Aggregatibacter sRNA 22: an 86-nucleotide sequence from Budvicia aquatica.
The family's RNA type in Rfam is small RNA.
For this family Rfam cites "Small RNA repertoires and their intraspecies variation in Aggregatibacter actinomycetemcomitans" (Oogai et al., DNA Res, 2017).
The base pairs follow the family's consensus structure, which was predicted with RNAfold.
Taxonomically the source falls in Budvicia (Bacteria, Pseudomonadota, Gammaproteobacteria, Enterobacterales).
RNA sequence: GGACUCGGACUAACGCCGCAGGCGUUUGAACAACGGCUUUGCCGUUGGCCCGCAGGGCGAGCCUGAAAGGCGAGUUAUCUAACGAA
Numbered sequence: 001g002g003a004c005u006c007g008g009a010c011u012a013a014c015g016c017c018g019c020a021g022g023c024g025u026u027u028g029a030a031c032a033a034c035g036g037c038u039u040u041g042c043c044g045u046u047g048g049c050c051c052g053c054a055g056g057g058c059g060a061g062c063c064u065g066a067a068a069g070g071c072g073a074g075u076u077a078u079c080u081a082a083c084g085a086a
Stems, first nucleotide, its partner, number of pairs: 010028001012026006031047007048058004061071004074083003